[Rfam]
RNA sequence: CCAGCAGCAGCGGGAGAGACUCGACUUCACGGUCGAGCGCCGAAGGAGCAACCGCCCCGGAAUCUCUCAGGCAAAAGGACCGCUGCCGCUUG
Numbered sequence: 001c002c003a004g005c006a007g008c009a010g011c012g013g014g015a016g017a018g019a020c021u022c023g024a025c026u027u028c029a030c031g032g033u034c035g036a037g038c039g040c041c042g043a044a045g046g047a048g049c050a051a052c053c054g055c056c057c058c059g060g061a062a063u064c065u066c067u068c069a070g071g072c073a074a075a076a077g078g079a080c081c082g083c084u085g086c087c088g089c090u091u092g
Base pairs, nucleotide, nucleotide: 007086008085009084010083011082012081013080020037021036022035023034039072040071041070042068043067046066047065048064052060053059
Dot-bracket structure: ......(((((((......((((..........)))).(((((..(((...((.....))...))))).))).......)))))))......
Shown here is a 92-nucleotide RNA sequence from Chelatococcus asaccharovorans, a member of the family "Glycine riboswitch aptamer". Taxonomically the source falls in Chelatococcus (Bacteria, Pseudomonadati, Pseudomonadota, Alphaproteobacteria). It scores 72 bits against the family's covariance model. Rfam links the family to the GO term glycine biosynthetic process.